[Rfam]
RNA sequence: UGAUCGGGAGGCUUCCUUUGGGACGGAAGCCAUGAAUUGAUCGAAUUUGUGUCGUCUCGUAUGGGCGUGAUGCUGGGGCCCGACAGCAUGCGCG
Numbered sequence: 001u002g003a004u005c006g007g008g009a010g011g012c013u014u015c016c017u018u019u020g021g022g023a024c025g026g027a028a029g030c031c032a033u034g035a036a037u038u039g040a041u042c043g044a045a046u047u048u049g050u051g052u053c054g055u056c057u058c059g060u061a062u063g064g065g066c067g068u069g070a071u072g073c074u075g076g077g078g079c080c081c082g083a084c085a086g087c088a089u090g091c092g093c094g
Stems, first nucleotide, its partner, number of pairs: 001043005010031007066094004071088005

About this RNA: Shown here is a 94-nucleotide RNA from Shimia litoralis, a member of the family "Rhodo-rpoB RNA". The family's consensus secondary structure is taken from published work. Rfam classes the family as a cis-regulatory element. The source organism's lineage runs through Bacteria, Pseudomonadati, Pseudomonadota, Rhodobacterales and Shimia.